[Rfam]
RNA sequence: UUCUAUAGAUCAAAGGCUAAAUACGCGCCAUCCUGGCGCGACGCCUUUGUGACCUACAUCCUGUAGG
Numbered sequence: 001u002u003c004u005a006u007a008g009a010u011c012a013a014a015g016g017c018u019a020a021a022u023a024c025g026c027g028c029c030a031u032c033c034u035g036g037c038g039c040g041a042c043g044c045c046u047u048u049g050u051g052a053c054c055u056a057c058a059u060c061c062u063g064u065a066g067g
Base pairs, nucleotide, nucleotide: 011049012048013047014046015045016044017043025039026038027037028036029035053067054066055065056064057063

About this RNA:
Bacillaceae-1 RNA: a 67-nucleotide sequence from Bacillus sp. J14TS2. Taxonomically the source falls in Bacillus (Bacteria, Bacillati, Caryophanales, Bacillaceae).